[Rfam]
The family of this 76-nucleotide RNA from Alligator sinensis is "Mammalian CPEB3 ribozyme". The source organism's lineage runs through Eukaryota, Deuterostomia, Gnathostomata, Sarcopterygii and Alligator. The family's consensus secondary structure is taken from published work.

RNA sequence: GGUUGCAAGCUUUAGGCCAUAGCAGAAGCACUCAUGAUGAGGCCCGUCAGAUUCCAAUGAAUCUGCAAAUUCUGCU
Numbered sequence: 001g002g003u004u005g006c007a008a009g010c011u012u013u014a015g016g017c018c019a020u021a022g023c024a025g026a027a028g029c030a031c032u033c034a035u036g037a038u039g040a041g042g043c044c045c046g047u048c049a050g051a052u053u054c055c056a057a058u059g060a061a062u063c064u065g066c067a068a069a070u071u072c073u074g075c076u
Base pairs, nucleotide, nucleotide: 015044016043017042018041021076022075023074024073025072026071027070029039030038048065049064050063051062052061053060054059
Dot-bracket structure: ..............[[[[..(((((((.((.......)).]]]]...(((((((....)))))))....)))))))